Rfam assigns this 102-nucleotide RNA from Blautia hydrogenotrophica to the family "SAM riboswitch aptamer (S box leader)".
[Rfam]
RNA sequence: CUCUUAUUCAGAGUGGUGGAGAUAUUAAGGAUCAGUGAAACCACGGCAACCCCUGACAAAAGGAAGGUGCCAACCUGAGCGAAGAAAUUCGAACAAUAAGAG
Dot-bracket structure: ((((((((....(((((...(((......[)))......)))))((((.(((((......)))..))))))....]...((((....))))...))))))))
The source organism's lineage runs through Bacteria, Bacillati, Lachnospiraceae, Blautia and Blautia hydrogenotrophica. The family's consensus secondary structure is taken from published work.